SAM riboswitch aptamer (S box leader): a 166-nucleotide RNA from Natronoglycomyces albus.
Nucleotides: 166
Base pairs, nucleotide, nucleotide: 002165003164004163005162006161007160008159013043014042015041016040017039021032022031023030026139027138028137029136044131045130046129047128049127050126052123053122054121135158140155141154142153143152144151
Number, partner (000 for none) and nucleotide at each position: 001000a002165c003164u004163u005162c006161a007160u008159c009000c010000a011000g012000a013043g014042c015041a016040g017039c018000u019000g020000a021032g022031g023030g024000a025000a026139c027138c028137g029136g030023c031022c032021c033000g034000a035000u036000g037000a038000c039017g040016c041015u042014g043013c044131g045130g046129c047128a048000a049127c050126c051000a052123u053122c054121g055000a056000c057000a058000u059000g060000a061000c062000u063000a064000u065000u066000g067000g068000c069000c070000u071000g072000g073000a074000g075000a076000a077000a078000c079000a080000c081000c082000a083000a084000a085000c086000c087000g088000c089000u090000a091000c092000g093000c094000g095000u096000u097000u098000u099000g100000u101000g102000u103000c104000c105000u106000c107000c108000g109000c110000c111000u112000a113000g114000u115000c116000g117000a118000u119000g120000c121054c122053g123052a124000c125000a126050g127049g128047u129046g130045c131044c132000a133000a134000c135158u136029c137028c138027g139026g140155c141154c142153c143152g144151u145000a146000c147000a148000c149000c150000c151144a152143c153142g154141g155140g156000g157000c158135a159008g160007a161006u162005g163004a164003g165002g166000a